[Rfam]
RNA sequence: UAGAAGAAUGUAGAUAAGGGAAGUCGGCAAAAUAGAUCCGUAACUUCGGGAAAAGGAUUGGCUCUGAGGGUUGGGCCUAAGGGUCUUUUCGGAGAGCUUGUGGCGGCCUACGUCGGUGUGUGUCUGGACCUCUCGGGGAUCGGAUGCGUGCUGGCGGUUGGGCUGCUCUUGCUGUGCUGGAGAGAAAGGGUAGUUGGCUUGCUGGCUGCCUGUUUCCUUAGUGCGUUGAACAACCAACUCAGAACUGGAGCGGACAAGGGGAAUCCGACUGUUUAAUUAAAACAAAGCAUUGUGAUGGCCGGAGACGGUGUUGACACAAUGUGAUUUCUGCCCAGUGCUCUGAAUGUCAAAGUGAAGAGAUUCAACCAAGCGCGGGUAAACGGCGGGAGUAACUAUGACUCUCUUAAGGUAGCCAAAUGCCUCGUCAUCUAACUAGUGACGCGCAUGAAUGGAUUAAUGAGAUUCCCACUGUCCCUAUCUACUGUCUAGCGAACCCACAGCCAAGGGAACGGGCUUGGAA
Dot-bracket structure: ((((.....(((((((.(((..............(((((....(....).....)))))((.(((((((((((.((.(.(((((((.((((.....(..(..(((((((((((((((((((((((((............)))))))))))))))))..)))))))).)..)......)))).)))..............................)))).).))......)))))..)))))).))(...).......(((((((((..(((.........)))..((((((((...((((....)))).....))))))))...(((.(((..((((((.(..(((.....((((....)))).....))))))))..)))))((((((.......))))))(...)...............(((((.......)))))..........)))....)).)))))))....))).)))))))..))))............(((((........)))))..

Shown here is a 520-nucleotide part of an RNA from Pythium oligandrum, a member of the family "Eukaryotic large subunit ribosomal RNA". A search with the family's covariance model found it, with a score of 3236 bits. The family's consensus secondary structure is taken from published work. The organism belongs to Pythium, within Eukaryota.